[Rfam]
RNA sequence: AAAGUAAGCUGGGCAGUCGCCGGUGCAGUGUCGAAAGACCGCACGGGAGGAAAGUCCGAGCUUCAUAGGGCGAGGGUGCCGGCUAACGGCCGGUGGGAGCGAUCCUAAGGAUAGUGCCACAGAAAGAAACCGCCAGCGGCCCCCAAUGGGGGUGCGGGUAAGGAUGCAACGGUGCGGUAAGAGCGCACCAGCAGCAUGGAGACAUGCUGGCUAGGUAAACCCCACCCGAAGCAAGACCGGAUAGGAGUCCACAUGCGUCGGCCCGGCGCGGACUCGGGUUGGUUGCUUGAGCGUGCUGGCAACAGUACGCCUAGAUAGAUGAUUGCCACUCCACAGUGCGAGGGUGACUCCCGUUUGCAGCACCAGGAGUACAGAACUCGGCUUACAGGCUUACUUUUCGG
Numbered sequence: 001a002a003a004g005u006a007a008g009c010u011g012g013g014c015a016g017u018c019g020c021c022g023g024u025g026c027a028g029u030g031u032c033g034a035a036a037g038a039c040c041g042c043a044c045g046g047g048a049g050g051a052a053a054g055u056c057c058g059a060g061c062u063u064c065a066u067a068g069g070g071c072g073a074g075g076g077u078g079c080c081g082g083c084u085a086a087c088g089g090c091c092g093g094u095g096g097g098a099g100c101g102a103u104c105c106u107a108a109g110g111a112u113a114g115u116g117c118c119a120c121a122g123a124a125a126g127a128a129a130c131c132g133c134c135a136g137c138g139g140c141c142c143c144c145a146a147u148g149g150g151g152g153u154g155c156g157g158g159u160a161a162g163g164a165u166g167c168a169a170c171g172g173u174g175c176g177g178u179a180a181g182a183g184c185g186c187a188c189c190a191g192c193a194g195c196a197u198g199g200a201g202a203c204a205u206g207c208u209g210g211c212u213a214g215g216u217a218a219a220c221c222c223c224a225c226c227c228g229a230a231g232c233a234a235g236a237c238c239g240g241a242u243a244g245g246a247g248u249c250c251a252c253a254u255g256c257g258u259c260g261g262c263c264c265g266g267c268g269c270g271g272a273c274u275c276g277g278g279u280u281g282g283u284u285g286c287u288u289g290a291g292c293g294u295g296c297u298g299g300c301a302a303c304a305g306u307a308c309g310c311c312u313a314g315a316u317a318g319a320u321g322a323u324u325g326c327c328a329c330u331c332c333a334c335a336g337u338g339c340g341a342g343g344g345u346g347a348c349u350c351c352c353g354u355u356u357g358c359a360g361c362a363c364c365a366g367g368a369g370u371a372c373a374g375a376a377c378u379c380g381g382c383u384u385a386c387a388g389g390c391u392u393a394c395u396u397u398u399c400g401g
Stems, first nucleotide, its partner, number of pairs: 001397010011386001012327007020047002023044004028039001052384003056381005061231004069264002074227005079093005094108001095106004109222002114220002116216003130163002132159003136155003140151004171189006191211001192209007235284004245275006255269005291310008
RNA: Bacterial RNase P class A
Organism: Tumebacillus algifaecis